Annotation
A member of the RNA family "TPP riboswitch aptamer (THI element)" from Streptococcus pneumoniae, 99 nucleotides long. From the family's description: Vitamin B(1) in its active form thiamin pyrophosphate (TPP) is an essential coenzyme that is synthesised by coupling of pyrimidine and thiazole moieties in bacteria. The organism belongs to Streptococcus pneumoniae, within Bacteria.

RNA sequence: AACAACCACUAGGGGUGCGUAAAGCUGAGAUUAACGACUGUUAGAUCCCUCUGACUCAAUCUAGGUAAUGCUAGCUGAUGGAAGUGGAAAUGAUAAUGG
Numbered sequence: 001a002a003c004a005a006c007c008a009c010u011a012g013g014g015g016u017g018c019g020u021a022a023a024g025c026u027g028a029g030a031u032u033a034a035c036g037a038c039u040g041u042u043a044g045a046u047c048c049c050u051c052u053g054a055c056u057c058a059a060u061c062u063a064g065g066u067a068a069u070g071c072u073a074g075c076u077g078a079u080g081g082a083a084g085u086g087g088a089a090a091u092g093a094u095a096a097u098g099g
Stems, first nucleotide, its partner, number of pairs: 006087005011050004016044001017025002032043004055080001061074004